[Rfam]
RNA sequence: ACGACCUUACUUGAACAGGAUCUGUUCUAUAGUCUCGUACCAUUGUAUCCUUGAGAUCUAAGGAGACAGAAAACUAAGUCUGGUUGAUGAGGCGUGGCUAUGAGGCUAGAGCGUGAUUAACAGCCUUCCAUGGUCACUUCUGUGGCCUUGGAGCAGUAGAGGAUCGUUCUCAGCUCUGCCUGCAGGUCUGGGAUGGUCUCAUAGCUGUCUGACAGACU
Numbered sequence: 001a002c003g004a005c006c007u008u009a010c011u012u013g014a015a016c017a018g019g020a021u022c023u024g025u026u027c028u029a030u031a032g033u034c035u036c037g038u039a040c041c042a043u044u045g046u047a048u049c050c051u052u053g054a055g056a057u058c059u060a061a062g063g064a065g066a067c068a069g070a071a072a073a074c075u076a077a078g079u080c081u082g083g084u085u086g087a088u089g090a091g092g093c094g095u096g097g098c099u100a101u102g103a104g105g106c107u108a109g110a111g112c113g114u115g116a117u118u119a120a121c122a123g124c125c126u127u128c129c130a131u132g133g134u135c136a137c138u139u140c141u142g143u144g145g146c147c148u149u150g151g152a153g154c155a156g157u158a159g160a161g162g163a164u165c166g167u168u169c170u171c172a173g174c175u176c177u178g179c180c181u182g183c184a185g186g187u188c189u190g191g192g193a194u195g196g197u198c199u200c201a202u203a204g205c206u207g208u209c210u211g212a213c214a215g216a217c218u
Stems, first nucleotide, its partner, number of pairs: 001038002003035001006032002013027006043069004048064006078217005097205012110168004120157002123154002126152001128151003132147006170191004175186004